[Rfam]
RNA sequence: GGUGCGGACGGACGAUAGUCUUCAGCGACCGUGCCAUUUGAAAACCCUUUGGGUCGGUGGGACUUUCGUCCGUUUGUAAC
Numbered sequence: 001g002g003u004g005c006g007g008a009c010g011g012a013c014g015a016u017a018g019u020c021u022u023c024a025g026c027g028a029c030c031g032u033g034c035c036a037u038u039u040g041a042a043a044a045c046c047c048u049u050u051g052g053g054u055c056g057g058u059g060g061g062a063c064u065u066u067c068g069u070c071c072g073u074u075u076g077u078a079a080c
Base pairs, nucleotide, nucleotide: 003078004077005076006075007074009072010071011070012069013068014067015066017064018063019062020061021060023059024058026056027055028054029053030052
RNA: mir-278 microRNA precursor family